[Rfam]
RNA sequence: GGGUGUCCGCUGCAUGCAGCAGUGACAGGUCAAGCGAUGGUCGGGCCGCCACG
Numbered sequence: 001g002g003g004u005g006u007c008c009g010c011u012g013c014a015u016g017c018a019g020c021a022g023u024g025a026c027a028g029g030u031c032a033a034g035c036g037a038u039g040g041u042c043g044g045g046c047c048g049c050c051a052c053g
Stems, first nucleotide, its partner, number of pairs: 005026003009023004035053002038051004
Shown here is a 53-nucleotide RNA sequence, a member of the family "nhaA-I RNA".
Rfam's curators write: Acidobacteria, Alphaproteobacteria, Betaproteobacteria and Gammaproteobacteria, Verrucomicrobia, cand. division NC10.
By type it is a riboswitch.
The base pairs follow the family's consensus structure, which is taken from published work.